[Rfam]
RNA sequence: UGGUAACACGAACCUGUUCUAAAGGGUCCCUGCUCUGACAGCACCUGUCAGUAGCCGUUGGGCAGGACCUUUUAGAACCGGUUCGUGUUAUGAA
Numbered sequence: 001u002g003g004u005a006a007c008a009c010g011a012a013c014c015u016g017u018u019c020u021a022a023a024g025g026g027u028c029c030c031u032g033c034u035c036u037g038a039c040a041g042c043a044c045c046u047g048u049c050a051g052u053a054g055c056c057g058u059u060g061g062g063c064a065g066g067a068c069c070u071u072u073u074a075g076a077a078c079c080g081g082u083u084c085g086u087g088u089u090a091u092g093a094a
Stems, first nucleotide, its partner, number of pairs: 003091012016078012029066002034061002038058002045051002

This 94-nucleotide RNA from Sorghum bicolor belongs to the Rfam family "MIR5387 microRNA precursor family". It scores 77 bits against the family's covariance model. Rfam 15.1 lists 1,029 matches to the family in 9 species. Pairs were carried over by alignment from the consensus structure, which was predicted with RNAalifold.